[Rfam]
Shown here is an 85-nucleotide RNA sequence from Paenibacillus mucilaginosus, a member of the family "c-di-GMP-I-GGC riboswitch aptamer". On this family, see Weinberg et al., Proc Natl Acad Sci U S A 2017: "Bioinformatic analysis of riboswitch structures uncovers variant classes with altered ligand specificity". Pairs were carried over by alignment from the consensus structure, which is taken from published work.
RNA sequence: AUCGAAAAAGGCAAACCAUGCGAAAGCAUGGGACGCAAAGCCACGGGUCUACAGCGUUAUGCGCAUGACAGCCGGGCUGCUGCAG
Dot-bracket structure: ..((......((...((((((....))))))..[))..((((.((((((.................))).])))))))..))...